Rfam assigns this 74-nucleotide sequence from Candidatus Udaeobacter sp. to the family "tRNA".
RNA sequence: CGGGCUGUGGCUCAGCUUGGUAGAGCGCCUGGUUCGGGACCAGGAGGCCGUGGGUUCAAAUCCCACCAGCCCGA
Numbered sequence: 001c002g003g004g005c006u007g008u009g010g011c012u013c014a015g016c017u018u019g020g021u022a023g024a025g026c027g028c029c030u031g032g033u034u035c036g037g038g039a040c041c042a043g044g045a046g047g048c049c050g051u052g053g054g055u056u057c058a059a060a061u062c063c064c065a066c067c068a069g070c071c072c073g074a
Stems, first nucleotide, its partner, number of pairs: 001073007010026004028044005050066005
Rfam's curators write: Transfer RNA (tRNA) molecules are approximately 80 nucleotides in length. Taxonomically the source falls in Candidatus Udaeobacter (Bacteria, Pseudomonadati, Spartobacteria, Chthoniobacteraceae).